[Rfam]
RNA: Betaproteobacteria-1 RNA
RNA sequence: CGCUAGAUUUGUCGGUUAAAAACGGCAGGAAUCUAGGGAUAGCAUCGACUGUGGGAUAGGUUUGAGAUAGAUGCAAGGGUGGCGAAGCUAGUGCCCUUAACCAAACGACUGGCGGGU
Numbered sequence: 001c002g003c004u005a006g007a008u009u010u011g012u013c014g015g016u017u018a019a020a021a022a023c024g025g026c027a028g029g030a031a032u033c034u035a036g037g038g039a040u041a042g043c044a045u046c047g048a049c050u051g052u053g054g055g056a057u058a059g060g061u062u063u064g065a066g067a068u069a070g071a072u073g074c075a076a077g078g079g080u081g082g083c084g085a086a087g088c089u090a091g092u093g094c095c096c097u098u099a100a101c102c103a104a105a106c107g108a109c110u111g112g113c114g115g116g117u
Stems, first nucleotide, its partner, number of pairs: 001038001003036008025052004043073004048068001059102004075098006087113006